This 492-nucleotide part of an RNA from Donacobius atricapilla belongs to the Rfam family "Eukaryotic large subunit ribosomal RNA". A search with the family's covariance model found it, with a score of 1982 bits. Pairs were carried over by alignment from the consensus structure, which is taken from published work.
RNA sequence: AAAUCAGCAAGCCAGAUCUAUAACUUCAGGAAAAGGAUUGGUUCUAAGGGCUGAGUCAGUUGGGCUGGGGCACAAAGCGUGGCUGGGUGCACACUGCAGCUGGAUAAGGCGCUGUGCACGGGUGAGAGCACACCACAUGGCCUGCCCAGGUGCCAGGGCACGCGCACAGUGGCUACUUCUCAUGCAUGCCGGGCCCUUCCCAUGGAUCGCCCCAGUUGCGGUGUGUGCCUCCUGCCCCCCCCGCCCUUGGCCCACCCUCAGCCUUGUCACAGCCAGUGCUCCAGCAGCAGCCACUGCCAUUGUCACUGCAUGCCACCACCCUGUCAAUGACCACUGGCAGGGUUCUUGUGGCACACGUUGGGUGGCCAGUGUGGCCACGGCCAGCGUCAGCCAAGUGGUUCGCACAGGGGAGGGUCCCUGGGGAGGGUCCCUGGGCCGGCGUCCCCCCCUCAGCCGGUGCCUAGCAGCCAGCUUAGAACUGGUGCAGUACAG
Numbered sequence: 001a002a003a004u005c006a007g008c009a010a011g012c013c014a015g016a017u018c019u020a021u022a023a024c025u026u027c028a029g030g031a032a033a034a035g036g037a038u039u040g041g042u043u044c045u046a047a048g049g050g051c052u053g054a055g056u057c058a059g060u061u062g063g064g065c066u067g068g069g070g071c072a073c074a075a076a077g078c079g080u081g082g083c084u085g086g087g088u089g090c091a092c093a094c095u096g097c098a099g100c101u102g103g104a105u106a107a108g109g110c111g112c113u114g115u116g117c118a119c120g121g122g123u124g125a126g127a128g129c130a131c132a133c134c135a136c137a138u139g140g141c142c143u144g145c146c147c148a149g150g151u152g153c154c155a156g157g158g159c160a161c162g163c164g165c166a167c168a169g170u171g172g173c174u175a176c177u178u179c180u181c182a183u184g185c186a187u188g189c190c191g192g193g194c195c196c197u198u199c200c201c202a203u204g205g206a207u208c209g210c211c212c213c214a215g216u217u218g219c220g221g222u223g224u225g226u227g228c229c230u231c232c233u234g235c236c237c238c239c240c241c242c243g244c245c246c247u248u249g250g251c252c253c254a255c256c257c258u259c260a261g262c263c264u265u266g267u268c269a270c271a272g273c274c275a276g277u278g279c280u281c282c283a284g285c286a287g288c289a290g291c292c293a294c295u296g297c298c299a300u301u302g303u304c305a306c307u308g309c310a311u312g313c314c315a316c317c318a319c320c321c322u323g324u325c326a327a328u329g330a331c332c333a334c335u336g337g338c339a340g341g342g343u344u345c346u347u348g349u350g351g352c353a354c355a356c357g358u359u360g361g362g363u364g365g366c367c368a369g370u371g372u373g374g375c376c377a378c379g380g381c382c383a384g385c386g387u388c389a390g391c392c393a394a395g396u397g398g399u400u401c402g403c404a405c406a407g408g409g410g411a412g413g414g415u416c417c418c419u420g421g422g423g424a425g426g427g428u429c430c431c432u433g434g435g436c437c438g439g440c441g442u443c444c445c446c447c448c449c450u451c452a453g454c455c456g457g458u459g460c461c462u463a464g465c466a467g468c469c470a471g472c473u474u475a476g477a478a479c480u481g482g483u484g485c486a487g488u489a490c491a492g
Stems, first nucleotide, its partner, number of pairs: 015039005024029001040480009049469005055458003059454005065249001068246004081240002085236002089232001094221009481485001